[Rfam]
RNA: Actinomyces-1 RNA
RNA sequence: ACUGCCGCCGGACGGUGCGGGUCGUGAGGAACCGGAUUCCCCACGGACAGGCCCGACCGAGAAUCGCAGGGUUUACAGGGAGCCCUGACGGAUUCGCUCCGGCGAAGGAG
Numbered sequence: 001a002c003u004g005c006c007g008c009c010g011g012a013c014g015g016u017g018c019g020g021g022u023c024g025u026g027a028g029g030a031a032c033c034g035g036a037u038u039c040c041c042c043a044c045g046g047a048c049a050g051g052c053c054c055g056a057c058c059g060a061g062a063a064u065c066g067c068a069g070g071g072u073u074u075a076c077a078g079g080g081a082g083c084c085c086u087g088a089c090g091g092a093u094u095c096g097c098u099c100c101g102g103c104g105a106a107g108g109a110g
Base pairs, nucleotide, nucleotide: 006104007103008102009101010100011099012098013059014058015057016056018055019054020053021052022051023050028040029039031037061095062094063093064091065090066089068086069085070084071083072082
Dot-bracket structure: .....(((((((((((.((((((....((.(.....).)).........)))))))))).((((((.(((((.........)))))..))).)))..)))))))......